[Rfam]
RNA sequence: GGGAAAUGAGGAGUGGUACAGGCUCGCUAAUUAUGCGAGAGGGGUGCCCGCCCCAAUAAGCCUGUUACGACACGGGCAUCCCCGUGAUCUAUCAUCUCCU
Numbered sequence: 001g002g003g004a005a006a007u008g009a010g011g012a013g014u015g016g017u018a019c020a021g022g023c024u025c026g027c028u029a030a031u032u033a034u035g036c037g038a039g040a041g042g043g044g045u046g047c048c049c050g051c052c053c054c055a056a057u058a059a060g061c062c063u064g065u066u067a068c069g070a071c072a073c074g075g076g077c078a079u080c081c082c083c084g085u086g087a088u089c090u091a092u093c094a095u096c097u098c099c100u
Stems, first nucleotide, its partner, number of pairs: 004100001014094005023039005041082008062074001064073002
Annotation: Rfam assigns this 100-nucleotide RNA sequence from Triticum aestivum to the family "Small nucleolar RNA Z279/snoR105/snoR108". Rfam links the family to the GO terms RNA processing and nucleolus. Pairs were carried over by alignment from the consensus structure, which was predicted with PFOLD. From the family's description: This family includes the plant snoRNAs known as Z279, snoR105 and snoR108. Clan: snoU13 clan.